U1 spliceosomal RNA: a 160-nucleotide RNA from Cucumis sativus.
Rfam's curators write: U1 is a small nuclear RNA (snRNA) component of the spliceosome (involved in pre-mRNA splicing).
A reference for the family is Zwieb (1997), "The uRNA database", Nucleic Acids Res.
Gene Ontology terms of the family: pre-mRNA 5'-splice site binding, U1 snRNP and mRNA 5'-splice site recognition.
The family's consensus secondary structure is taken from published work.
The organism belongs to Cucumis, within Eukaryota.
RNA sequence: AUACUUACCCGGACGGGGUCAAUGAGCGAUCAUAAAGGCUCAUGGCCUAGGUUGGCGACCUCCAUUGCACUUCGAAGGGGUGCCCGUCUAAGGUCUGCCCAAAGGGGCAGAGCAUACGUCAUUAUUUGUGGCAGUGGGGGCCUGCGUGCGCGGCCCCUUU
Numbered sequence: 001a002u003a004c005u006u007a008c009c010c011g012g013a014c015g016g017g018g019u020c021a022a023u024g025a026g027c028g029a030u031c032a033u034a035a036a037g038g039c040u041c042a043u044g045g046c047c048u049a050g051g052u053u054g055g056c057g058a059c060c061u062c063c064a065u066u067g068c069a070c071u072u073c074g075a076a077g078g079g080g081u082g083c084c085c086g087u088c089u090a091a092g093g094u095c096u097g098c099c100c101a102a103a104g105g106g107g108c109a110g111a112g113c114a115u116a117c118g119u120c121a122u123u124a125u126u127u128g129u130g131g132c133a134g135u136g137g138g139g140g141c142c143u144g145c146g147u148g149c150g151c152g153g154c155c156c157c158u159u160u
Stems, first nucleotide, its partner, number of pairs: 012120004016048006023042005049089003053086001055083003059079003063074001091115001093113001094111003098107002136159005143152003